Rfam assigns this 58-nucleotide RNA sequence to the family "RAGATH-30 RNA". It is annotated as a small RNA. Pairs were carried over by alignment from the consensus structure, which is taken from published work.

[Rfam]
RNA sequence: GUAAAAAUAAGAAAGCAUCGAAAUAAUUCGCAAAGGCGAAAUCUGCUGGUAGCAGAAA
Numbered sequence: 001g002u003a004a005a006a007a008u009a010a011g012a013a014a015g016c017a018u019c020g021a022a023a024u025a026a027u028u029c030g031c032a033a034a035g036g037c038g039a040a041a042u043c044u045g046c047u048g049g050u051a052g053c054a055g056a057a058a
Base pairs, nucleotide, nucleotide: 027040028039029038030037031036042056043055044054045053046052047051